Shown here is an 85-nucleotide RNA sequence from Planococcus salinus, a member of the family "c-di-GMP-I-GGC riboswitch aptamer". Lineage of the source: Bacteria > Bacillota > Bacilli > Caryophanaceae > Planococcus. The family's consensus secondary structure is taken from published work. Clan: c-di-GMP_I riboswitch clan.

RNA sequence: UGCGAAAAAGGCAAACUUUUCGAAAGAAAAGGACGCAAAGCCACGGGCCUACGUAUGAAAAUAUAAGGUAGCCGGGUUACCGAAA
Numbered sequence: 001u002g003c004g005a006a007a008a009a010g011g012c013a014a015a016c017u018u019u020u021c022g023a024a025a026g027a028a029a030a031g032g033a034c035g036c037a038a039a040g041c042c043a044c045g046g047g048c049c050u051a052c053g054u055a056u057g058a059a060a061a062u063a064u065a066a067g068g069u070a071g072c073c074g075g076g077u078u079a080c081c082g083a084a085a
Base pairs, nucleotide, nucleotide: 001085003082004081011036012035016031017030018029019028020027021026034071039078040077041076042075044074045073046072047069048068049067